RNA sequence: AAAAAGGGCGUGCCAUGAUGCCAUUCUCUAGGGAAUGGUUGAUAUGGCGGGAGUCUUGGUUUACUCUCGCGGUAUGGCAAUCAAGACAUAUCGAGCGCAUAAUUUUUUGAUUUGGGGUGGCUCGCAAUAGGCUUCGCUCAAGCCGGGGCCACCUU
Number, nucleotide and partner (000 for none) at each position: 001a000002a000003a000004a000005a000006g000007g000008g098009c097010g096011u095012g000013c047014c046015a045016u044017g043018a000019u000020g000021c000022c000023a000024u000025u000026c000027u000028c000029u000030a000031g000032g000033g000034a000035a000036u000037g000038g000039u000040u000041g000042a000043u017044a016045u015046g014047g013048c069049g068050g067051g066052a065053g064054u063055c000056u000057u000058g000059g000060u000061u000062u000063a054064c053065u052066c051067u050068c049069g048070c093071g092072g091073u090074a089075u088076g087077g000078c000079a000080a000081u000082c000083a000084a000085g000086a000087c076088a075089u074090a073091u072092c071093g070094a000095g011096c010097g009098c008099a000100u000101a000102a000103u000104u000105u000106u000107u000108u000109g000110a000111u000112u000113u000114g000115g000116g153117g152118u151119g150120g149121c148122u147123c146124g000125c000126a000127a000128u000129a000130g000131g000132c000133u000134u000135c000136g000137c000138u000139c000140a000141a000142g000143c000144c000145g000146g123147g122148g121149c120150c119151a118152c117153c116154u000155u000